[Rfam]
RNA sequence: AUAUCCUUUUGGCUAAGAUCAAGUGUAAUAUCUGUUCUUAUCAGUUUAAUAUCUGAUACGUCCUCUAUCUGAGACAAUAUGUAACAGAUUGGAAUACCUAAAAGGGGUUCUAGAACUUGCCCUGUGAAAUAGGUUUCUUUUGGAACCUUUGUAGUGUACUAAGACCCUGAGCCCCAUCCAGAACCUUC
Numbered sequence: 001a002u003a004u005c006c007u008u009u010u011g012g013c014u015a016a017g018a019u020c021a022a023g024u025g026u027a028a029u030a031u032c033u034g035u036u037c038u039u040a041u042c043a044g045u046u047u048a049a050u051a052u053c054u055g056a057u058a059c060g061u062c063c064u065c066u067a068u069c070u071g072a073g074a075c076a077a078u079a080u081g082u083a084a085c086a087g088a089u090u091g092g093a094a095u096a097c098c099u100a101a102a103a104g105g106g107g108u109u110c111u112a113g114a115a116c117u118u119g120c121c122c123u124g125u126g127a128a129a130u131a132g133g134u135u136u137c138u139u140u141u142g143g144a145a146c147c148u149u150u151g152u153a154g155u156g157u158a159c160u161a162a163g164a165c166c167c168u169g170a171g172c173c174c175c176a177u178c179c180a181g182a183a184c185c186u187u188c
Base pairs, nucleotide, nucleotide: 003014005012006011039058040057041056042055043054044053060075061074063073064072065071105137106136107135109133110132111131112130117128118127140181141180142179143178144177147171148170149169151167
Shown here is a 188-nucleotide RNA from Chrysochloris asiatica, a member of the family "U2 spliceosomal RNA". The match comes from Rfam's covariance-model search (68 bits). Rfam 15.1 lists 71,512 matches to the family in 2,642 species.